[Rfam]
RNA sequence: GCCAAGGCUCUUACGAGAUUGGCAAGGCGGGCGCCGGAGGGUGUCCGGCGCUCUCAGAUCCAUGUUGCUCUAUGGAGGAUAUGGCGAUGAGAA
Numbered sequence: 001g002c003c004a005a006g007g008c009u010c011u012u013a014c015g016a017g018a019u020u021g022g023c024a025a026g027g028c029g030g031g032c033g034c035c036g037g038a039g040g041g042u043g044u045c046c047g048g049c050g051c052u053c054u055c056a057g058a059u060c061c062a063u064g065u066u067g068c069u070c071u072a073u074g075g076a077g078g079a080u081a082u083g084g085c086g087a088u089g090a091g092a093a
Base pairs, nucleotide, nucleotide: 001023002022003021004020005019008017009016030052031051032050033049034048035047036046053091054090055089056088060084061083062082063081064080065079066078068077069076070075
The family of this 93-nucleotide RNA sequence from Microvirga subterranea is "Repression of heat shock gene expression (ROSE) element". The source organism's lineage runs through Bacteria, Pseudomonadota, Alphaproteobacteria, Methylobacteriaceae and Microvirga. The family's RNA type in Rfam is RNA thermoregulator. The match comes from Rfam's covariance-model search (56 bits). For this family Rfam cites "A mRNA-based thermosensor controls expression of rhizobial heat shock genes" (Nocker et al., Nucleic Acids Res, 2001).